The family of this 80-nucleotide sequence from Liquorilactobacillus capillatus is "ZMP/ZTP riboswitch aptamer (pfl RNA motif)".
RNA sequence: UGAGAGUUGUAUUACUGGCGGGAGUGGGUGAACCACACGGAGUAUGACUCAAUAUAAUGUCGACCGCCUGGGCACUUCUG
Numbered sequence: 001u002g003a004g005a006g007u008u009g010u011a012u013u014a015c016u017g018g019c020g021g022g023a024g025u026g027g028g029u030g031a032a033c034c035a036c037a038c039g040g041a042g043u044a045u046g047a048c049u050c051a052a053u054a055u056a057a058u059g060u061c062g063a064c065c066g067c068c069u070g071g072g073c074a075c076u077u078c079u080g
Stems, first nucleotide, its partner, number of pairs: 004050009015039001017068005024036004058074004
The family's consensus secondary structure is taken from published work. Lineage of the source: Bacteria > Bacillati > Bacillota > Liquorilactobacillus > Liquorilactobacillus capillatus. A search with the family's covariance model found it, with a score of 48 bits.